[Rfam]
RNA sequence: ACUGUGUGAAAGACAUGGGUAGUGAGAUUGUGACAUCUCAAGACUAUCCCGCUACCUUGUCUCUCAUCACAGC
Numbered sequence: 001a002c003u004g005u006g007u008g009a010a011a012g013a014c015a016u017g018g019g020u021a022g023u024g025a026g027a028u029u030g031u032g033a034c035a036u037c038u039c040a041a042g043a044c045u046a047u048c049c050c051g052c053u054a055c056c057u058u059g060u061c062u063c064u065c066a067u068c069a070c071a072g073c
Base pairs, nucleotide, nucleotide: 008065009064011062012061013060014059015058017057018056019055021053022052023051024050026048027047028046
RNA: mir-71 microRNA precursor family